[Rfam]
RNA: HNH endonuclease-associated RNA and ORF (HEARO) RNA
RNA sequence: GUCGUAGACCCCAUGGCUGAAGCCAGGGGCUUGGAGCCCGUCUAUGACGAGGCCAAGCGAUGGAGCCCAUGGACAAGGCGCUGAUGUCGCUACGUUGCGAACAGGUUCAAGACCCACUCCGGGGUGCUUCCCCAGCCCCGGACCCUGGCAGUCCCGGUUGCAGACAAGCUUUGGGGUGUGCGCGAAACGGAUCGGGACGUGCACCGGUUCGCAACAUGGCCGAGGGGAGCGGUAC
Numbered sequence: 001g002u003c004g005u006a007g008a009c010c011c012c013a014u015g016g017c018u019g020a021a022g023c024c025a026g027g028g029g030c031u032u033g034g035a036g037c038c039c040g041u042c043u044a045u046g047a048c049g050a051g052g053c054c055a056a057g058c059g060a061u062g063g064a065g066c067c068c069a070u071g072g073a074c075a076a077g078g079c080g081c082u083g084a085u086g087u088c089g090c091u092a093c094g095u096u097g098c099g100a101a102c103a104g105g106u107u108c109a110a111g112a113c114c115c116a117c118u119c120c121g122g123g124g125u126g127c128u129u130c131c132c133c134a135g136c137c138c139c140g141g142a143c144c145c146u147g148g149c150a151g152u153c154c155c156g157g158u159u160g161c162a163g164a165c166a167a168g169c170u171u172u173g174g175g176g177u178g179u180g181c182g183c184g185a186a187a188c189g190g191a192u193c194g195g196g197a198c199g200u201g202c203a204c205c206g207g208u209u210c211g212c213a214a215c216a217u218g219g220c221c222g223a224g225g226g227g228a229g230c231g232g233u234a235c
Base pairs, nucleotide, nucleotide: 001048002047003046004045005044006043007042008041010029011028012026016023017022051221052220053219054218055217056091057090058089059088060087061086062085094215095214096213097212098211099210100209101208102207104205114148115147118142119141120140121139122138123137124136125135128229129228130227131226132225133224151198152197153196154195155194156193157192158191159190165189170186171185172184173183